[Rfam]
RNA: MIR162_1 microRNA precursor family
Organism: Anisodus acutangulus
RNA sequence: UGGUUUAGCACUGGAGGCAGCGGUUCAUCGAUCUGUUCCCUGAACGCUGAUAUAUAGCACGAGGAAUCGGUCGAUAAACCUCUGCAUCCAGCGCUUAACCU
Numbered sequence: 001u002g003g004u005u006u007a008g009c010a011c012u013g014g015a016g017g018c019a020g021c022g023g024u025u026c027a028u029c030g031a032u033c034u035g036u037u038c039c040c041u042g043a044a045c046g047c048u049g050a051u052a053u054a055u056a057g058c059a060c061g062a063g064g065a066a067u068c069g070g071u072c073g074a075u076a077a078a079c080c081u082c083u084g085c086a087u088c089c090a091g092c093g094c095u096u097a098a099c100c101u
Stems, first nucleotide, its partner, number of pairs: 013089003018084003022080004027075007036066003